[Rfam]
RNA sequence: CACCGCCCGUCACACCCUGGGAAUUGGUUUCGCCCGAAGCAUCGGACCAAUGAUCACCCAUGACUUCUGUGUACCACUAGUGCCACAAAGGCUUUUGGUGGUCUUAUUGGCGCAUACCACGGUGGGGUCUUCGACUGGGGUGAAGUCGUAACAAGGUAGCCGUAGGGGAACCUGUGGCUGGAUGGAAUCCU
Numbered sequence: 001c002a003c004c005g006c007c008c009g010u011c012a013c014a015c016c017c018u019g020g021g022a023a024u025u026g027g028u029u030u031c032g033c034c035c036g037a038a039g040c041a042u043c044g045g046a047c048c049a050a051u052g053a054u055c056a057c058c059c060a061u062g063a064c065u066u067c068u069g070u071g072u073a074c075c076a077c078u079a080g081u082g083c084c085a086c087a088a089a090g091g092c093u094u095u096u097g098g099u100g101g102u103c104u105u106a107u108u109g110g111c112g113c114a115u116a117c118c119a120c121g122g123u124g125g126g127g128u129c130u131u132c133g134a135c136u137g138g139g140g141u142g143a144a145g146u147c148g149u150a151a152c153a154a155g156g157u158a159g160c161c162g163u164a165g166g167g168g169a170a171c172c173u174g175u176g177g178c179u180g181g182a183u184g185g186a187a188u189c190c191u
Stems, first nucleotide, its partner, number of pairs: 003155001005152001008148002011145001013142008026129009157180010
RNA: Archaeal small subunit ribosomal RNA, nucleotides 2495 to 2685